[Rfam]
RNA sequence: UCAUAUGUACCCUGUAGAACCGAAUGUGUGUUGGCUCGAGUGGUCACAGAUUCGGUUUUAGGGGAGUAUAUGAG
Numbered sequence: 001u002c003a004u005a006u007g008u009a010c011c012c013u014g015u016a017g018a019a020c021c022g023a024a025u026g027u028g029u030g031u032u033g034g035c036u037c038g039a040g041u042g043g044u045c046a047c048a049g050a051u052u053c054g055g056u057u058u059u060a061g062g063g064g065a066g067u068a069u070a071u072g073a074g
Base pairs, nucleotide, nucleotide: 002072003071004070005069006068007067010064011063012062016059017058018057019056020055021054022053023052024051025050027048028047029046030045